[Rfam]
RNA: Small nucleolar RNA snoR639/H1
Organism: Cryptotermes secundus
RNA sequence: ACCCCACCCAAAUAAGCCGGCCGUGGUCAAUGUCAAGUGUUGCUAUGGUGUGCUCGUGGUGGGAACAGUAAGCCUGAAAUGUGUAUGGCUAUUUGUGUGAUUACAUUUUAGCCAAAGGAAAUUCAGAGACA
Numbered sequence: 001a002c003c004c005c006a007c008c009c010a011a012a013u014a015a016g017c018c019g020g021c022c023g024u025g026g027u028c029a030a031u032g033u034c035a036a037g038u039g040u041u042g043c044u045a046u047g048g049u050g051u052g053c054u055c056g057u058g059g060u061g062g063g064a065a066c067a068g069u070a071a072g073c074c075u076g077a078a079a080u081g082u083g084u085a086u087g088g089c090u091a092u093u094u095g096u097g098u099g100a101u102u103a104c105a106u107u108u109u110a111g112c113c114a115a116a117g118g119a120a121a122u123u124c125a126g127a128g129a130c131a
Base pairs, nucleotide, nucleotide: 020049021048022047023046024045025044026043027042074126075125076124077123086114087113088112089111090110091109095106096105097104098103